This 592-nucleotide part of an RNA from uncultured myxobacterium HF0200_08J13 belongs to the Rfam family "Bacterial small subunit ribosomal RNA". Rfam links the family to the GO terms structural constituent of ribosome and ribosome. Pairs were carried over by alignment from the consensus structure, which is taken from published work. The family is grouped with related families in Rfam's "SSU clan". The organism belongs to Myxococcales, within Bacteria.
RNA sequence: UGACGGGGGCUCACACAAGCGGUGGAGGAUGUGGCUUAAUUCGAGGCAACGCGAAGAACCUUAUCCCGGAUUUGACAUCUACGGAUUAGCUCUGUGAAAGCAAAGUGACGCCUUCGGGUGGAACGUAGACAGGUGCUGCAUGGCUGUCGUCAGCUCGUGCCGUGAGGUGUCGCGUUAAGUCGCUAAACGAGCGAAACCCUUGUCGUUAGUUGCCAGCACGUAAUGGUGGGGACUCUAGCGAGACUGCCGGUGUUAAACCGGAGGAAGGUGGGGACGACGUCAAGUCAUCAUGGCCUUUAUGUCCGGGGCUGCACACGUCCUACAAUGGAACAUACAGACGGCCGCGAACCCGCGAGGGUAAGCUAAUCCGAAAAAGUGUUCCUUAGUUCGGAUUGCAGGCUGCAACUCGCCUGCAUGAAGCCGGAAUCGCUAGUAAUCGCAGGUCAGCUAUACUGCGGUGAAUGUGUUCCUGAGCCUUGUACACACCGCCCGUCAAGCCACGAAAGCGGGGGGCACCUAAAGUCGCCGGGCUAACCUUCGGGAGGCAGGUGCCUAGGGUGAACUCCGUGAUUGGGACUAAGUCGUAACAAGG
Number, nucleotide and partner (000 for none) at each position: 001u483002g482003a480004c479005g478006g000007g477008g476009g475010c474011u473012c472013a471014c000015a467016c466017a000018a000019g430020c429021g428022g427023u426024g323025g000026a321027g320028g319029a318030u317031g316032u315033g314034g312035c311036u000037u000038a000039a000040u055041u054042c053043g052044a000045g000046g000047c000048a000049a000050c000051g000052c043053g042054a041055a040056g000057a000058a000059c000060c000061u000062u000063a000064u000065c307066c306067c305068g304069g303070a302071u301072u000073u000074g000075a000076c000077a000078u129079c128080u000081a126082c125083g124084g000085a000086u000087u000088a000089g106090c105091u104092c000093u102094g101095u100096g000097a000098a000099a000100g095101c094102a093103a000104a091105g090106u089107g000108a000109c120110g119111c118112c117113u000114u000115c000116g000117g112118g111119u110120g109121g000122a000123a000124c083125g082126u081127a000128g079129a078130c000131a000132g296133g295134u000135g294136c293137u292138g291139c000140a000141u290142g289143g285144c284145u283146g281147u000148c279149g278150u000151c000152a000153g192154c191155u190156c189157g188158u187159g168160c167161c166162g000163u000164g000165a000166g161167g160168u159169g000170u000171c000172g183173c182174g181175u000176u000177a000178a000179g000180u000181c174182g173183c172184u000185a000186a000187a158188c157189g156190a155191g154192c153193g000194a000195a000196a000197c000198c273199c272200u271201u270202g000203u241204c240205g239206u238207u237208a236209g235210u000211u000212g000213c230214c229215a000216g000217c228218a227219c226220g000221u000222a000223a000224u000225g000226g219227u218228g217229g214230g213231g000232a000233c000234u000235c209236u208237a207238g206239c205240g204241a203242g000243a000244c264245u263246g000247c261248c260249g259250g258251u257252g000253u000254u000255a000256a000257a251258c250259c249260g248261g247262a000263g245264g244265a000266a000267g000268g000269u000270g201271g200272g199273g198274a000275c000276g000277a000278c149279g148280u000281c146282a000283a145284g144285u143286c000287a000288u000289c142290a141291u138292g137293g136294c135295c133296u132297u000298u000299a000300u000301g071302u070303c069304c068305g067306g066307g065308g000309c000310u000311g035312c034313a000314c033315a032316c031317g030318u029319c028320c027321u026322a000323c024324a000325a000326u000327g382328g381329a380330a379331c378332a377333u376334a000335c000336a000337g000338a000339c370340g369341g368342c000343c000344g363345c362346g000347a000348a000349c358350c357351c356352g000353c000354g000355a000356g351357g350358g349359u000360a000361a000362g345363c344364u000365a000366a000367u000368c341369c340370g339371a000372a000373a000374a000375a000376g333377u332378g331379u330380u329381c328382c327383u000384u000385a000386g000387u000388u000389c420390g000391g000392a000393u000394u415395g414396c413397a412398g411399g410400c409401u000402g000403c000404a000405a000406c000407u000408c000409g400410c399411c398412u397413g396414c395415a394416u000417g000418a000419a000420g389421c000422c000423g000424g000425a000426a023427u022428c021429g020430c019431u000432a000433g000434u000435a000436a459437u458438c457439g456440c455441a454442g453443g000444u000445c000446a000447g000448c000449u000450a000451u000452a000453c442454u441455g440456c439457g438458g437459u436460g000461a000462a000463u000464g000465u000466g016467u015468u000469c000470c000471u013472g012473a011474g010475c009476c008477u007478u005479g004480u003481a000482c002483a001484c000485a000486c591487c000488g588489c000490c000491c584492g583493u000494c000495a000496a578497g577498c000499c575500a000501c573502g572503a571504a000505a000506g568507c567508g566509g565510g564511g563512g000513g000514c560515a559516c558517c557518u000519a000520a000521a000522g553523u000524c551525g550526c549527c548528g000529g000530g546531c545532u544533a000534a000535c542536c541537u000538u000539c000540g000541g536542g535543a000544g532545g531546c530547a000548g527549g526550u525551g524552c000553c522554u000555a000556g000557g517558g516559u515560g514561a000562a000563c511564u510565c509566c508567g507568u506569g000570a000571u503572u502573g501574g000575g499576a000577c497578u496579a000580a000581g000582u000583c492584g491585u000586a000587a000588c488589a000590a000591g486592g000